[Rfam]
RNA: Bacterial RNase P class A
RNA sequence: UGACUGGUGCAGACGGUCGCGUGCGUUAUGCAUGAGGAAAGUCCGGGCUGCGCAGGGCAAGGAUAACGGAUAACGUCCGCCGGGGGCGACCCCAGGAAUAGUGCAACAGAGAAAUACCGCCGCGUCUCCGUAAUGAAGACUCGGUAAGGGUGGAAAGGCGAGGUAAGGGCUCACCGCGCCCCAUGGCAACAUGGGGGGCCUGUAAACUCUAUCCGCAGCAACGCCGACAGGGACUAUGGGCGGCCCGUCCGUCCCGACUGGCGGCUUGAGGCGCGCGGCGACGCGCGUCCCAGAUAGAUGACCGUCCAAUACAGAACCCGGCUUACAGCACCAGUCAUGAC
Dot-bracket structure: ((((((((((.(((((((.((((((...))))))....[[[.[[[[[((((....[[...(((((.((((.....)))).(((((....)))).)((...(((((...........((((((.((((.........)))).))))..)).......((.(((.......))).))((.(((((((....)))))))).).)))..)))))))))))))...((((.....((....(((((...]]))))).)).....))))......((((((((....))))))))..........)))))))..........]]]]]]]]...))))))))))....